[Rfam]
RNA sequence: AACAUAGUGGGUAAAGUCCAAUAGGGAGGGCAUUGCAGUUGAAAUCAAACAUUUCUGCAGUGGCUCCUAUUGGUCAGUACUCAAUUUAUGAU
Numbered sequence: 001a002a003c004a005u006a007g008u009g010g011g012u013a014a015a016g017u018c019c020a021a022u023a024g025g026g027a028g029g030g031c032a033u034u035g036c037a038g039u040u041g042a043a044a045u046c047a048a049a050c051a052u053u054u055c056u057g058c059a060g061u062g063g064c065u066c067c068u069a070u071u072g073g074u075c076a077g078u079a080c081u082c083a084a085u086u087u088a089u090g091a092u
Stems, first nucleotide, its partner, number of pairs: 001092001003090005008083006016075001018073009030064001031062008
Rfam assigns this 92-nucleotide RNA from Apostichopus japonicus to the family "mir-2005 microRNA precursor family". It scores 66 bits against the family's covariance model. Rfam links the family to the GO terms RISC complex and miRNA-mediated post-transcriptional gene silencing.